[Rfam]
RNA: mir-57 microRNA precursor family
RNA sequence: AUUGGCUCACAUACCCUGUGGUACCGAGCUGUGUGUUGGGUACACGAUCACACACAAUCGGCUACGGGGUGAUUGAACCCUACG
Numbered sequence: 001a002u003u004g005g006c007u008c009a010c011a012u013a014c015c016c017u018g019u020g021g022u023a024c025c026g027a028g029c030u031g032u033g034u035g036u037u038g039g040g041u042a043c044a045c046g047a048u049c050a051c052a053c054a055c056a057a058u059c060g061g062c063u064a065c066g067g068g069g070u071g072a073u074u075g076a077a078c079c080c081u082a083c084g
Stems, first nucleotide, its partner, number of pairs: 012071004018065004024061002028059001030057001032056005039049002